This 84-nucleotide RNA sequence from Populus tomentosa belongs to the Rfam family "Small nucleolar RNA Z159/U59". Clan: SNORD59 clan. Lineage of the source: Eukaryota > Streptophyta > Tracheophyta > Spermatophyta > Populus. The literature on the family includes a 2003 paper in Nucleic Acids Res by Chen et al., "The high diversity of snoRNAs in plants: identification and comparative study of 120 snoRNA genes from Oryza sativa".

RNA sequence: GUCUCUAAUGAUGAUCAAAACUUUCGCUCUUCUGACAUUUUAAAAUCAUGUGGAAGUUUUAAUGGAGACCUGAACUGAAGAGAC
Numbered sequence: 001g002u003c004u005c006u007a008a009u010g011a012u013g014a015u016c017a018a019a020a021c022u023u024u025c026g027c028u029c030u031u032c033u034g035a036c037a038u039u040u041u042a043a044a045a046u047c048a049u050g051u052g053g054a055a056g057u058u059u060u061a062a063u064g065g066a067g068a069c070c071u072g073a074a075c076u077g078a079a080g081a082g083a084c
Base pairs, nucleotide, nucleotide: 003082004081005080006079